[Rfam]
RNA sequence: CCACUAGGCACGCGGCGUCAUCUGGGGAGUAGCCCGCCGCCCUUCGGGGUGGUUUCCUGCGUCAACAUACUUGGCCGAGAGGCCAUGGUGCGGGGAGGACGGUUCAUCCGUCCC
Numbered sequence: 001c002c003a004c005u006a007g008g009c010a011c012g013c014g015g016c017g018u019c020a021u022c023u024g025g026g027g028a029g030u031a032g033c034c035c036g037c038c039g040c041c042c043u044u045c046g047g048g049g050u051g052g053u054u055u056c057c058u059g060c061g062u063c064a065a066c067a068u069a070c071u072u073g074g075c076c077g078a079g080a081g082g083c084c085a086u087g088g089u090g091c092g093g094g095g096a097g098g099a100c101g102g103u104u105c106a107u108c109c110g111u112c113c114c
Base pairs, nucleotide, nucleotide: 036053037052038051055095056094057093058092059091060090061089062088063087064086072085073084074083075082076081097113098112099111100110101109102108